[Rfam]
RNA sequence: UAACCUAUUUAGCGAUAAAUAGCUGAACAGUCAGAAGUCAGCAGAGGUCAUAGUACUCGACUAGCUUAAGAUAGUCGAGGAAGGAC
Numbered sequence: 001u002a003a004c005c006u007a008u009u010u011a012g013c014g015a016u017a018a019a020u021a022g023c024u025g026a027a028c029a030g031u032c033a034g035a036a037g038u039c040a041g042c043a044g045a046g047g048u049c050a051u052a053g054u055a056c057u058c059g060a061c062u063a064g065c066u067u068a069a070g071a072u073a074g075u076c077g078a079g080g081a082a083g084g085a086c
Stems, first nucleotide, its partner, number of pairs: 001025002005022007038045002047086003056079006